RNA sequence: GGGAUUUUACAUUCGGUUCUCUAGCUUUAUGAGAUCUCGUACACUCAUACAGCUAGAUAACCAAAGAGAAAAUCCC
Numbered sequence: 001g002g003g004a005u006u007u008u009a010c011a012u013u014c015g016g017u018u019c020u021c022u023a024g025c026u027u028u029a030u031g032a033g034a035u036c037u038c039g040u041a042c043a044c045u046c047a048u049a050c051a052g053c054u055a056g057a058u059a060a061c062c063a064a065a066g067a068g069a070a071a072a073u074c075c076c
Base pairs, nucleotide, nucleotide: 001076002075003074004073005072007070008069012065013064015062016061017060018059020057021056022055023054024053025052026051028049029048030047031046032045033044
RNA: mir-9/mir-79 microRNA precursor family
Organism: Lonchura striata